Rfam assigns this 138-nucleotide RNA from Loigolactobacillus bifermentans to the family "FMN riboswitch aptamer (RFN element)". About the family: The RFN element is a highly conserved domain that is found frequently in the 5'-untranslated regions of prokaryotic mRNAs that encode for flavin mononucleotide (FMN) biosynthesis and transport proteins. NCBI's taxonomy places the organism under Bacteria, Bacillati, Bacillota, Lactobacillaceae, Loigolactobacillus bifermentans. The base pairs follow the family's consensus structure, which is taken from published work.
RNA sequence: UCAUUUCUUCGGGGCAAGGUGAAAUUCCUGACCGACGGUAACAGUCAUCAUGACUGAAGUCCGUGACCCGCAAUUUUUGCGGCUGAUGCAGUGCGAAUCUGCAACCGACAGUUAAAGUCUGGAUGGGAGAAGAGUUGA
Numbered sequence: 001u002c003a004u005u006u007c008u009u010c011g012g013g014g015c016a017a018g019g020u021g022a023a024a025u026u027c028c029u030g031a032c033c034g035a036c037g038g039u040a041a042c043a044g045u046c047a048u049c050a051u052g053a054c055u056g057a058a059g060u061c062c063g064u065g066a067c068c069c070g071c072a073a074u075u076u077u078u079g080c081g082g083c084u085g086a087u088g089c090a091g092u093g094c095g096a097a098u099c100u101g102c103a104a105c106c107g108a109c110a111g112u113u114a115a116a117g118u119c120u121g122g123a124u125g126g127g128a129g130a131a132g133a134g135u136u137g138a
Base pairs, nucleotide, nucleotide: 003136005134006133007132008131009130010129017029018028019027031118032117033107034106035064036063037062038061059105060104068082069081087103088102089101090100091099109121110120111119